[Rfam]
RNA sequence: CUGGCGGAUCGAGCAGCUGCGGGGGCUUCGCCCUCGAGGAAAGUCCGGACAUCGCAGGGCAAGGUGGUCGGUAACGCCGACCCGGGGAAACUCGCGGGACAGUGCCACAGAAAACACACCGCCUAAGGUCGCUCGCAAGGGCGUCCCGGCAAGGUUGAAAAGGUGCGGUAAGAGCGCACCGGCGCCGUGGUGACGCGGCGGCCAGGUAAACCCCACCUGAUGCAAGACCAAGCAGGACCGUUCGCAGGCUGCCCGCCGAGGUCCAGGUCGGUCGCACAGAUGGAUGGCUGCUCCAGACAGAAUCCGGCUUACAGAUCCGCUACGGGU
Numbered sequence: 001c002u003g004g005c006g007g008a009u010c011g012a013g014c015a016g017c018u019g020c021g022g023g024g025g026c027u028u029c030g031c032c033c034u035c036g037a038g039g040a041a042a043g044u045c046c047g048g049a050c051a052u053c054g055c056a057g058g059g060c061a062a063g064g065u066g067g068u069c070g071g072u073a074a075c076g077c078c079g080a081c082c083c084g085g086g087g088a089a090a091c092u093c094g095c096g097g098g099a100c101a102g103u104g105c106c107a108c109a110g111a112a113a114a115c116a117c118a119c120c121g122c123c124u125a126a127g128g129u130c131g132c133u134c135g136c137a138a139g140g141g142c143g144u145c146c147c148g149g150c151a152a153g154g155u156u157g158a159a160a161a162g163g164u165g166c167g168g169u170a171a172g173a174g175c176g177c178a179c180c181g182g183c184g185c186c187g188u189g190g191u192g193a194c195g196c197g198g199c200g201g202c203c204a205g206g207u208a209a210a211c212c213c214c215a216c217c218u219g220a221u222g223c224a225a226g227a228c229c230a231a232g233c234a235g236g237a238c239c240g241u242u243c244g245c246a247g248g249c250u251g252c253c254c255g256c257c258g259a260g261g262u263c264c265a266g267g268u269c270g271g272u273c274g275c276a277c278a279g280a281u282g283g284a285u286g287g288c289u290g291c292u293c294c295a296g297a298c299a300g301a302a303u304c305c306g307g308c309u310u311a312c313a314g315a316u317c318c319g320c321u322a323c324g325g326g327u
Base pairs, nucleotide, nucleotide: 002322003321004320005319006318007317008316009315010314011312012292013291014290015289016288017287018286020036021035022034023033024032025031026030041310042309043308045307046306047305048304049303050222051221052220053219057254058253059252060251062218063217064216065215066214067081068080069079070078071077082096083094084093085092086091097213098212102211103210104207105206106205119154120153121150122149123148127146128145130143131142132141133140162180163179164178165177166176167175182202183200184199185198186197187196188195189194226273227272228271229270235264236263237262238261239260247257248256249255

Shown here is a 327-nucleotide sequence from Solirubrobacter pauli, a member of the family "Bacterial RNase P class A". The match comes from Rfam's covariance-model search (236 bits). Taxonomically the source falls in Solirubrobacter (Bacteria, Bacillati, Actinomycetota, Solirubrobacteraceae). Its family is annotated with ribonuclease P activity, tRNA processing and dimeric ribonuclease P complex in the Gene Ontology.